[Rfam]
Source information:
Shown here is a 62-nucleotide RNA from Mesoplasma lactucae, a member of the family "2dG-I riboswitch aptamer (M. florum)".
RNA sequence: UCUUAUAUAGGGUAUCAAAAAGGGAUACUGUUUCUACCUCCACCUAACUGGAGACUAUAAGA
Numbered sequence: 001u002c003u004u005a006u007a008u009a010g011g012g013u014a015u016c017a018a019a020a021a022g023g024g025a026u027a028c029u030g031u032u033u034c035u036a037c038c039u040c041c042a043c044c045u046a047a048c049u050g051g052a053g054a055c056u057a058u059a060a061g062a
Stems, first nucleotide, its partner, number of pairs: 001062007008036001011029006022044002030037001038053005
For this family Rfam cites "Guanine riboswitch variants from Mesoplasma florum selectively recognize 2'-deoxyguanosine" (Kim et al., Proc Natl Acad Sci U S A, 2007).